RNA sequence: CCCUGAUGAUGAAACAUUCACACGUCCGACCUGCUGUCUGGUGCCAGAGCCUGAAAAGGUCGAACCCACUGGUACCAACAGCAGGAGAGGAAGGAACAAUGGUUCCAGAUGGAACUGUCUGAAGGGG
Numbered sequence: 001c002c003c004u005g006a007u008g009a010u011g012a013a014a015c016a017u018u019c020a021c022a023c024g025u026c027c028g029a030c031c032u033g034c035u036g037u038c039u040g041g042u043g044c045c046a047g048a049g050c051c052u053g054a055a056a057a058g059g060u061c062g063a064a065c066c067c068a069c070u071g072g073u074a075c076c077a078a079c080a081g082c083a084g085g086a087g088a089g090g091a092a093g094g095a096a097c098a099a100u101g102g103u104u105c106c107a108g109a110u111g112g113a114a115c116u117g118u119c120u121g122a123a124g125g126g127g
Stems, first nucleotide, its partner, number of pairs: 001126004
This 127-nucleotide sequence from Hymenochirus boettgeri belongs to the Rfam family "Small nucleolar RNA SNORD22". The family's consensus secondary structure was predicted with PFOLD.